[Rfam]
RNA sequence: UAAAACGGAAGAGGAGCGUUACCCAGGUAUUUAGAUUGCAGGGCCCCACCCUAAAGCAACCUAAAGAGGGGGAGUAACGCCGAGAUAUAACUGAUUGGGGCUCAGCGAUAUCGGCUAUGAAGGUUGAAUCCUUCUGGCUGUCACCUUUUUAUGCAUAAGUACCAUAUAAAAAGGUGGGGAGCUUCUGGUUGU
Numbered sequence: 001u002a003a004a005a006c007g008g009a010a011g012a013g014g015a016g017c018g019u020u021a022c023c024c025a026g027g028u029a030u031u032u033a034g035a036u037u038g039c040a041g042g043g044c045c046c047c048a049c050c051c052u053a054a055a056g057c058a059a060c061c062u063a064a065a066g067a068g069g070g071g072g073a074g075u076a077a078c079g080c081c082g083a084g085a086u087a088u089a090a091c092u093g094a095u096u097g098g099g100g101c102u103c104a105g106c107g108a109u110a111u112c113g114g115c116u117a118u119g120a121a122g123g124u125u126g127a128a129u130c131c132u133u134c135u136g137g138c139u140g141u142c143a144c145c146u147u148u149u150u151a152u153g154c155a156u157a158a159g160u161a162c163c164a165u166a167u168a169a170a171a172a173g174g175u176g177g178g179g180a181g182c183u184u185c186u187g188g189u190u191g192u
Stems, first nucleotide, its partner, number of pairs: 006187006016080007024072001030065005036059002084112005091105004113139004119134005141177013

About this RNA
A member of the RNA family "Lysine riboswitch aptamer" from Photobacterium profundum, 192 nucleotides long. A search with the family's covariance model found it, with a score of 89 bits. The family has 47 seed sequences and 3,224 matches in Rfam 15.1.